The family of this 402-nucleotide RNA from Candidatus Tokpelaia sp. JSC161 is "Bacterial RNase P class A".
It scores 312 bits against the family's covariance model.
It is annotated as a ribozyme.
Rfam links the family to the GO terms ribonuclease P activity, dimeric ribonuclease P complex and tRNA processing.
Taxonomically the source falls in Candidatus Tokpelaia (Bacteria, Pseudomonadati, Alphaproteobacteria, Hyphomicrobiales).
[Rfam]
RNA sequence: UUAGUUAGCUGGGCAACCGCAUCAACUCAGUACCGAAAGGUCGUUGAUGAGGAAAGUCCGGGCUCCAAGGAAAUACGGUGCCGGGUAACACCCGGCGGGGGUAACUCCAGGGAAAGUGCCACAGAAAGAAAACCGCCUGUUUACUUGACAGGUAAGGGUGAAAGGGUGGAGUAAGAGCCCACCGCAUGAGCAGUAAUGGUCAUGGCAUGGUAAACCCCACCAGGAGCAAGACCGAAUAGGGAUAGCGCGUCAGAUCUCAGAUCUAAAAACGCAGGGUUUAUUUCCAAACCUCACUAUCCGGGUAGGUUGCACGAGAUGUAUGGUAACAUACGUCCUAGAUUAAUGGUUGCCACGCAGGAUAUUCCUGUUUGACAGAACCCGGCUUAUAAGCUAGCUAACCAC
Number, nucleotide and partner (000 for none) at each position: 001u398002u397003a396004g395005u394006u393007a392008g391009c390010u389011g387012g351013g350014c349015a348016a347017c346018c345019g000020c049021a048022u047023c046024a045025a044026c043027u000028c000029a000030g000031u000032a000033c000034c000035g000036a000037a000038a000039g000040g000041u000042c000043g026044u025045u024046g023047a022048u021049g020050a000051g000052g000053a000054a385055a384056g383057u000058c382059c381060g380061g379062g378063c226064u225065c224066c223067a000068a000069g000070g000071a000072a283073a282074u000075a000076c000077g221078g220079u219080g218081c095082c094083g093084g092085g091086u000087a000088a000089c000090a000091c085092c084093c083094g082095g081096c110097g108098g107099g106100g105101g000102u000103a000104a000105c100106u099107c098108c097109a000110g096111g217112g216113a000114a000115a000116g215117u214118g211119c210120c209121a000122c000123a000124g000125a000126a000127a000128g000129a000130a000131a000132a000133c157134c156135g153136c152137c151138u150139g149140u148141u147142u000143a000144c000145u000146u000147g141148a140149c139150a138151g137152g136153u135154a000155a000156g134157g133158g000159u000160g000161a000162a000163a000164g000165g183166g182167u181168g180169g179170a000171g000172u000173a000174a000175g000176a000177g000178c000179c169180c168181a167182c166183c165184g206185c204186a203187u202188g201189a200190g000191c198192a197193g000194u000195a000196a000197u192198g191199g000200u189201c188202a187203u186204g185205g000206c184207a000208u000209g120210g119211u118212a000213a000214a117215c116216c112217c111218c080219a079220c078221c077222a000223g066224g065225a064226g063227c000228a000229a000230g308231a307232c306233c305234g000235a000236a000237u000238a000239g000240g299241g298242a297243u296244a295245g294246c000247g000248c000249g000250u000251c000252a000253g000254a000255u000256c000257u000258c000259a000260g000261a000262u000263c000264u000265a000266a000267a000268a000269a000270c000271g000272c000273a000274g000275g290276g289277u288278u287279u286280a000281u000282u073283u072284c000285c000286a279287a278288a277289c276290c275291u000292c000293a000294c245295u244296a243297u242298c241299c240300g000301g000302g000303u000304a000305g233306g232307u231308u230309g000310c000311a000312c000313g000314a000315g334316a333317u332318g331319u330320a329321u328322g327323g000324u000325a000326a000327c322328a321329u320330a319331c318332g317333u316334c315335c000336u000337a000338g000339a000340u000341u000342a000343a000344u000345g018346g017347u016348u015349g014350c013351c012352a000353c000354g000355c000356a000357g000358g000359a000360u000361a000362u000363u000364c000365c000366u000367g000368u000369u000370u000371g000372a000373c000374a000375g000376a000377a000378c062379c061380c060381g059382g058383c056384u055385u054386a000387u011388a000389a010390g009391c008392u007393a006394g005395c004396u003397a002398a001399c000400c000401a000402c000